Shown here is a 140-nucleotide sequence from Phocaeicola massiliensis, a member of the family "Bacteroidete tryptophan peptide leader RNA".
Lineage of the source: Bacteria > Pseudomonadati > Bacteroidia > Bacteroidaceae > Phocaeicola massiliensis.
Gene Ontology terms of the family: S-adenosylmethionine metabolic process and regulation of gene expression.
The match comes from Rfam's covariance-model search (80 bits).
RNA sequence: CGAAAUAGAAACAGAAAAAGAUGAAAAGAAUAUUAGUAAAUACAUGUUGGUGGCGUCUCUUGCAACUGAAUAAGUCGUAAGAGAACCAGUCCAUGUGUAUAUACUUAACAUUCUAAAAGGAUAUUCAGAAAAGGUCUGUC
Dot-bracket structure: ...................................(((.((((((((.((.....((((...(.(((.....))).)...))).).....)))))))))).)))....................................